[Rfam]
RNA sequence: UCAAUUAAGGUAGGUGGAAUAGUAUAACAAUAUAUCACAUGUUGUUAUAGUGUUCCACCUUCCCUGAUGUG
Numbered sequence: 001u002c003a004a005u006u007a008a009g010g011u012a013g014g015u016g017g018a019a020u021a022g023u024a025u026a027a028c029a030a031u032a033u034a035u036c037a038c039a040u041g042u043u044g045u046u047a048u049a050g051u052g053u054u055c056c057a058c059c060u061u062c063c064c065u066g067a068u069g070u071g
Base pairs, nucleotide, nucleotide: 004068005067006066007065009063010062012060013059014058015057016056017055019053020052021051023049024048025047026046027045028044029043030042031041032040033039
Rfam assigns this 71-nucleotide RNA from Lepisosteus oculatus to the family "mir-2985 microRNA precursor family". Rfam 15.1 lists 2,000 matches to the family in 637 species. From the family's description: RNAs can be post-transcriptional modified, in micro RNAs (miRNA) editing of pre-mRNA is a common process. On this family, see Gunaratne et al., BMC Genomics 2011: "Song exposure regulates known and novel microRNAs in the zebra finch auditory forebrain". Pairs were carried over by alignment from the consensus structure, which was predicted with RNAalifold. Lineage of the source: Eukaryota > Eumetazoa > Vertebrata > Actinopteri > Lepisosteus.